Description:
The family of this 76-nucleotide RNA is "Flavo-1 RNA". The family has 201 seed sequences and 7,497 matches in Rfam 15.1. The sequence is in the family's curated seed alignment. It is annotated as a small RNA.
[Rfam]
RNA sequence: ACAUAGAAGCGAUAGCAGCGGCAUCCUUUUUUGUCCUGAUAAGGUAAAAAAGAUAUAGCGAAUAGCGCGACCCGAA
Numbered sequence: 001a002c003a004u005a006g007a008a009g010c011g012a013u014a015g016c017a018g019c020g021g022c023a024u025c026c027u028u029u030u031u032u033g034u035c036c037u038g039a040u041a042a043g044g045u046a047a048a049a050a051a052g053a054u055a056u057a058g059c060g061a062a063u064a065g066c067g068c069g070a071c072c073c074g075a076a
Stems, first nucleotide, its partner, number of pairs: 009068003013064002018059002023054003029049005035044003
Dot-bracket structure: ........(((.((...((...(((...(((((.(((....))))))))..)))...))...)).)))........